[Rfam]
A member of the RNA family "Rothia-sucC RNA", 59 nucleotides long. It is one of the family's seed sequences. By type it is a cis-regulatory element.
RNA sequence: UCCUCUAAUGAGACCAGGCCGAGUGCAUCAGUACUCGGCACCACUUCGAAGAAGAAGGA
Number, nucleotide and partner (000 for none) at each position: 001u000002c000003c000004u000005c000006u000007a000008a000009u000010g000011a000012g000013a000014c000015c000016a000017g000018g039019c038020c037021g036022a035023g034024u033025g032026c031027a000028u000029c000030a000031g026032u025033a024034c023035u022036c021037g020038g019039c018040a000041c000042c000043a000044c000045u000046u000047c000048g000049a000050a000051g000052a000053a000054g000055a000056a000057g000058g000059a000